[Rfam]
RNA: MIR480 microRNA precursor family
RNA sequence: CAAUUUGUUUGUGACAAAUUCUCAUUUAAUUGUGACAAACUCAUACCUAAUUGCUCAGAAUUACUCAUUAUCGCAAGUCUGACUACAUCGUUGACAUUGGAAAACAAAAGACAACUAAUGUGUGAACAAUAAAUU
Numbered sequence: 001c002a003a004u005u006u007g008u009u010u011g012u013g014a015c016a017a018a019u020u021c022u023c024a025u026u027u028a029a030u031u032g033u034g035a036c037a038a039a040c041u042c043a044u045a046c047c048u049a050a051u052u053g054c055u056c057a058g059a060a061u062u063a064c065u066c067a068u069u070a071u072c073g074c075a076a077g078u079c080u081g082a083c084u085a086c087a088u089c090g091u092u093g094a095c096a097u098u099g100g101a102a103a104a105c106a107a108a109a110g111a112c113a114a115c116u117a118a119u120g121u122g123u124g125a126a127c128a129a130u131a132a133a134u135u
Base pairs, nucleotide, nucleotide: 004133005132006131007130008129009128012125014123015122018119019118025117027114030111031110